[Rfam]
A member of the RNA family "Mammalian CPEB3 ribozyme" from Alligator sinensis, 81 nucleotides long.
Taxonomically the source falls in Alligator (Eukaryota, Eumetazoa, Vertebrata, Archosauria).

RNA sequence: GGGGGGUUCCAGCCUCAUAGCAGAAGCGUUCACGUUGUGACCCCUGUCAGCUAAUCCCUGGUAAUCCCUGCAAAUUCUGCU
Dot-bracket structure: ..[[[[[[..........((((((((((.......)))]]]]]]...(((.................)))....)))))))